[Rfam]
The family of this 75-nucleotide RNA is "Hairpin ribozyme 1 from viruses-like metatranscriptomes". Rfam's curators put it in the seed alignment. For this family Rfam cites "Identification of over 200-fold more hairpin ribozymes than previously known in diverse circular RNAs" (Weinberg et al., Nucleic Acids Res, 2021). The base pairs follow the family's consensus structure, which is taken from published work.
RNA sequence: AGAUUGAUCCUCUACAUUAGAGGUGAGAAGUUGAUGAGGGAAACAUCUCAGGUAUCUGAGAGCAUAUUAACUCAU
Numbered sequence: 001a002g003a004u005u006g007a008u009c010c011u012c013u014a015c016a017u018u019a020g021a022g023g024u025g026a027g028a029a030g031u032u033g034a035u036g037a038g039g040g041a042a043a044c045a046u047c048u049c050a051g052g053u054a055u056c057u058g059a060g061a062g063c064a065u066a067u068u069a070a071c072u073c074a075u
Base pairs, nucleotide, nucleotide: 002032003031004030009025010022011021012020013019034075035074036073037072038071046061047060048059049058050057051056